[Rfam]
RNA sequence: CCAACGGCUCUUUUAAGAGCCACCAAUGUUUUCUAUAGAAGAGUU
Numbered sequence: 001c002c003a004a005c006g007g008c009u010c011u012u013u014u015a016a017g018a019g020c021c022a023c024c025a026a027u028g029u030u031u032u033c034u035a036u037a038g039a040a041g042a043g044u045u
Stems, first nucleotide, its partner, number of pairs: 006021006